[Rfam]
RNA sequence: CUCUUAUCAAGAGAGGCGGAGGGACUGGCCCGAUGAAGCCCGGCAACCACCAGUUUUGGAAAGGUGCUAAUUCCUGAGAAGAUUAUGAUCUUCUGGAGAUGAGAG
Dot-bracket structure: ((((((((....(.(((...(((.[.[[)))......))))((((.((.(((....)))...))))))...(]].]((((((......))))))..)))))))))